[Rfam]
A member of the RNA family "Eukaryotic large subunit ribosomal RNA" from Prorocentrum micans, 376 nucleotides of a longer RNA. The sequence is in the family's curated seed alignment. The source organism's lineage runs through Eukaryota, Alveolata, Dinophyceae, Prorocentrales and Prorocentrum. Rfam links the family to the GO terms structural constituent of ribosome and ribosome.
RNA sequence: ACUUGAUACUGCGACAGUAAUCGAAGUCAGUACGAGAGGACAACUUCGUUCAGAUACUUGGUAAAUGCGGCUAGCUGAAAAGCUAAUACCGCGAAGCUACCAUCUGUUGGAUUACGACUGAACGCCUCUAAGUCGGAAUCCAUGCUGGCUAAGCAGUGUUGUCCACCAUUUCCAUUGUUACAUGACAAGCAUUAGCUUCGGCCUGUUGCAUACGAACACUCUUACCGAGAAAGGUUUUGUGGCUAAUCUUAAUUUCCAGCUUUGGAAGUGAUAAAUCUUUUGCAGACGACUUAACUGAAUCCAGGUAUUGUAAGUGCUGAGAGUAGCCUUUGUAGCUACGAUCCACUGAGGUUCAUCCUGUGUUUUUCUGAUUUGU
Numbered sequence: 001a002c003u004u005g006a007u008a009c010u011g012c013g014a015c016a017g018u019a020a021u022c023g024a025a026g027u028c029a030g031u032a033c034g035a036g037a038g039g040a041c042a043a044c045u046u047c048g049u050u051c052a053g054a055u056a057c058u059u060g061g062u063a064a065a066u067g068c069g070g071c072u073a074g075c076u077g078a079a080a081a082g083c084u085a086a087u088a089c090c091g092c093g094a095a096g097c098u099a100c101c102a103u104c105u106g107u108u109g110g111a112u113u114a115c116g117a118c119u120g121a122a123c124g125c126c127u128c129u130a131a132g133u134c135g136g137a138a139u140c141c142a143u144g145c146u147g148g149c150u151a152a153g154c155a156g157u158g159u160u161g162u163c164c165a166c167c168a169u170u171u172c173c174a175u176u177g178u179u180a181c182a183u184g185a186c187a188a189g190c191a192u193u194a195g196c197u198u199c200g201g202c203c204u205g206u207u208g209c210a211u212a213c214g215a216a217c218a219c220u221c222u223u224a225c226c227g228a229g230a231a232a233g234g235u236u237u238u239g240u241g242g243c244u245a246a247u248c249u250u251a252a253u254u255u256c257c258a259g260c261u262u263u264g265g266a267a268g269u270g271a272u273a274a275a276u277c278u279u280u281u282g283c284a285g286a287c288g289a290c291u292u293a294a295c296u297g298a299a300u301c302c303a304g305g306u307a308u309u310g311u312a313a314g315u316g317c318u319g320a321g322a323g324u325a326g327c328c329u330u331u332g333u334a335g336c337u338a339c340g341a342u343c344c345a346c347u348g349a350g351g352u353u354c355a356u357c358c359u360g361u362g363u364u365u366u367u368c369u370g371a372u373u374u375g376u
Stems, first nucleotide, its partner, number of pairs: 005160008015147004020050001022048006051106005059099003066093005072085005108142003115135005168269007273374005278294002282290001297366003301362001303359003307352002314346003320342001323339005